RNA: ZMP/ZTP riboswitch aptamer (pfl RNA motif)
RNA sequence: ACUCUGGCCCGCUGACGGAAUCUUGUGGAGCACCACAGUGCGGGGAGGGUUUUUGAUUCAAUGUCGACCGUCUGGGCAGCCUUA
Numbered sequence: 001a002c003u004c005u006g007g008c009c010c011g012c013u014g015a016c017g018g019a020a021u022c023u024u025g026u027g028g029a030g031c032a033c034c035a036c037a038g039u040g041c042g043g044g045g046a047g048g049g050u051u052u053u054u055g056a057u058u059c060a061a062u063g064u065c066g067a068c069c070g071u072c073u074g075g076g077c078a079g080c081c082u083u084a
Stems, first nucleotide, its partner, number of pairs: 001050005008045003012040001014072005025036004062078004
Dot-bracket structure: (((((..(((.(.[[[[[......((((....))))...)..))))))))...........((((..]]]]]..))))......